[Rfam]
RNA sequence: GAAAAAGCAGGGGCCUGUUGCCUUUGUGAAUGGGCCUCUCGUAAAUGUCAGGAAAAUCAUGAGCCUUGUUAUUGGGUGAACCUCUGUUUUCGCCUUUGUGGUUUGUGGCUGAAGGUUCAGUAAAUGAUGCAACAUUU
Numbered sequence: 001g002a003a004a005a006a007g008c009a010g011g012g013g014c015c016u017g018u019u020g021c022c023u024u025u026g027u028g029a030a031u032g033g034g035c036c037u038c039u040c041g042u043a044a045a046u047g048u049c050a051g052g053a054a055a056a057u058c059a060u061g062a063g064c065c066u067u068g069u070u071a072u073u074g075g076g077u078g079a080a081c082c083u084c085u086g087u088u089u090u091c092g093c094c095u096u097u098g099u100g101g102u103u104u105g106u107g108g109c110u111g112a113a114g115g116u117u118c119a120g121u122a123a124a125u126g127a128u129g130c131a132a133c134a135u136u137u
Base pairs, nucleotide, nucleotide: 005048007046011037012036014034015033016032017031063130064129066127067126068125069124070123077119078118079117080116081115082114083113